This 84-nucleotide sequence from Populus tomentosa belongs to the Rfam family "Small nucleolar RNA SNORD34". About the family: snoRNA U34 is found in intron 5 of the ribosomal protein L13a gene in humans. Rfam classes the family as a C/D-box small nucleolar RNA. The family's consensus secondary structure was predicted with PFOLD. Its family is annotated with RNA processing and nucleolus in the Gene Ontology. The source organism's lineage runs through Eukaryota, Viridiplantae, Streptophytina, Euphyllophyta and Populus.
[Rfam]
RNA sequence: AGAAGCCCGUGAUGAUUUGAAUUUGCCUGCAUUGUCUGAUCAUCUAAUGAAUGAUAGAGACAUAUAAUUAGUUUUGAGGCUUCC
Numbered sequence: 001a002g003a004a005g006c007c008c009g010u011g012a013u014g015a016u017u018u019g020a021a022u023u024u025g026c027c028u029g030c031a032u033u034g035u036c037u038g039a040u041c042a043u044c045u046a047a048u049g050a051a052u053g054a055u056a057g058a059g060a061c062a063u064a065u066a067a068u069u070a071g072u073u074u075u076g077a078g079g080c081u082u083c084c
Stems, first nucleotide, its partner, number of pairs: 002083001004081004
The family has 14 seed sequences and 1,319 matches in Rfam 15.1.